[Rfam]
Shown here is a 97-nucleotide RNA sequence from Salinimonas marina, a member of the family "Tryptophan operon leader". The base pairs follow the family's consensus structure, which is taken from published work. At least 6 amino acid operons are known to be regulated by attenuation. In each a leader sequence of 150-200 bp is found upstream of the first gene in the operon. This leader sequence can assume two different secondary structures known as the terminator and the anti-terminator structure. In each case the leader also codes for very short peptide sequence that is rich in the end product amino acid of the operon. The literature on the family includes a 1982 paper in Annu Rev Genet by Kolter and Yanofsky, "Attenuation in amino acid biosynthetic operons". Rfam classes the family as a cis-regulatory leader. The match comes from Rfam's covariance-model search (43 bits).
Nucleotides: 097
Stems, first nucleotide, its partner, number of pairs: 006043003012037005017031004071090008
Number, partner (000 for none) and nucleotide at each position: 001000a002000u003000c004000u005000g006043g007042u008041g009000g010000u011000g012037g013036c014035a015034c016033u017031c018030c019029c020028u021000a022000a023000c024000u025000u026000a027000a028020a029019g030018g031017g032000c033016g034015g035014u036013g037012u038000g039000c040000g041008c042007a043006u044000g045000u046000g047000u048000g049000c050000g051000u052000g053000u054000c055000a056000a057000a058000a059000c060000a061000c062000u063000u064000a065000a066000g067000a068000a069000a070000a071090g072089g073088c074087c075086c076085g077084u078083u079000u080000u081000u082000u083078a084077a085076c086075g087074g088073g089072c090071c091000u092000u093000u094000u095000u096000u097000u